[Rfam]
Shown here is a 372-nucleotide RNA sequence from Steatornis caripensis, a member of the family "Nuclear RNase P".
RNA sequence: UCCGGGGGAAGCUCACCGCCGAGGUCACUCACGGGGUGCCAGUCACCCGCGCCCCGCCUCGGGGAAGGUCUGAGAGAAGGGCCGCUCCACGGCUCCAGCAGAGCCCCGCCCGCGAGGGGCGGGUGAGCCACCAGCAAGGGGGGGCGCCGCGAAUUGGGUCGGUCCUGGGCAGGAGAAACCGCAGCCGGUUCCGGCGGGGGCGGAGCAGCGGCGGGGAUGAUUCCUCGCCCGCUCGUGCCACGUACACGGAACCCCGGUGGAUGCUCGUGGCCCCGCGGUGCUUUGAGACAGACUCACGGCCGGCGAACGCUGAGUCCAAUGGGUGAGGUAGGGCAUCGCCCUACAACCCAAUUCAGACUACUCUCCCCCGGA
Numbered sequence: 001u002c003c004g005g006g007g008g009a010a011g012c013u014c015a016c017c018g019c020c021g022a023g024g025u026c027a028c029u030c031a032c033g034g035g036g037u038g039c040c041a042g043u044c045a046c047c048c049g050c051g052c053c054c055c056g057c058c059u060c061g062g063g064g065a066a067g068g069u070c071u072g073a074g075a076g077a078a079g080g081g082c083c084g085c086u087c088c089a090c091g092g093c094u095c096c097a098g099c100a101g102a103g104c105c106c107c108g109c110c111c112g113c114g115a116g117g118g119g120c121g122g123g124u125g126a127g128c129c130a131c132c133a134g135c136a137a138g139g140g141g142g143g144g145c146g147c148c149g150c151g152a153a154u155u156g157g158g159u160c161g162g163u164c165c166u167g168g169g170c171a172g173g174a175g176a177a178a179c180c181g182c183a184g185c186c187g188g189u190u191c192c193g194g195c196g197g198g199g200g201c202g203g204a205g206c207a208g209c210g211g212c213g214g215g216g217a218u219g220a221u222u223c224c225u226c227g228c229c230c231g232c233u234c235g236u237g238c239c240a241c242g243u244a245c246a247c248g249g250a251a252c253c254c255c256g257g258u259g260g261a262u263g264c265u266c267g268u269g270g271c272c273c274c275g276c277g278g279u280g281c282u283u284u285g286a287g288a289c290a291g292a293c294u295c296a297c298g299g300c301c302g303g304c305g306a307a308c309g310c311u312g313a314g315u316c317c318a319a320u321g322g323g324u325g326a327g328g329u330a331g332g333g334c335a336u337c338g339c340c341c342u343a344c345a346a347c348c349c350a351a352u353u354c355a356g357a358c359u360a361c362u363c364u365c366c367c368c369c370g371g372a
Stems, first nucleotide, its partner, number of pairs: 001372004007366003012327006020061005034048005070356005080301004091105005106122006123297005129291001143282009328344007